This 189-nucleotide sequence from Sphingorhabdus pulchriflava belongs to the Rfam family "Manganese Mn2+ riboswitch aptamer (yybP-ykoY)". The pairing is the family consensus, mapped onto this sequence.
[Rfam]
RNA sequence: UAACCCGUCAUCUGGGGAGUAGCCAGCCGUUUCGUUUUAGAAGCGGGAUAUGCAUCAACAUAUUUGGCCGAGAGGCCAUGGUGCAUGUGGGAUCGCAUUUGCGGUUCAUGGCGAGACCAAUGGCAUCGGCGGUCCGUUCCGGCUGGGCGGGGCUGCUGGUGGCAUUGCGUCUGUCUCCUGCCCGGCCCC
Number, nucleotide and partner (000 for none) at each position: 001u000002a000003a000004c000005c000006c000007g000008u000009c000010a000011u000012c000013u000014g000015g000016g000017g000018a000019g000020u000021a000022g000023c000024c000025a000026g000027c046028c045029g044030u000031u000032u000033c000034g000035u000036u000037u000038u000039a000040g000041a000042a000043g000044c029045g028046g027047g000048a088049u087050a086051u085052g084053c083054a082055u081056c080057a079058a000059c000060a000061u000062a000063u000064u000065u078066g077067g076068c075069c074070g000071a000072g000073a000074g069075g068076c067077c066078a065079u057080g056081g055082u054083g053084c052085a051086u050087g049088u048089g000090g000091g000092a000093u000094c000095g000096c000097a000098u000099u000100u000101g000102c000103g000104g000105u000106u000107c000108a000109u000110g000111g000112c000113g000114a000115g000116a000117c000118c000119a000120a000121u000122g000123g000124c000125a000126u000127c000128g000129g000130c000131g000132g000133u000134c000135c000136g000137u000138u000139c000140c000141g000142g000143c000144u000145g000146g000147g000148c000149g000150g000151g000152g000153c000154u000155g000156c000157u000158g000159g000160u000161g000162g000163c000164a000165u000166u000167g000168c000169g000170u000171c000172u000173g000174u000175c000176u000177c000178c000179u000180g000181c000182c000183c000184g000185g000186c000187c000188c000189c000
The source organism's lineage runs through Bacteria, Pseudomonadati, Pseudomonadota, Alphaproteobacteria and Sphingorhabdus.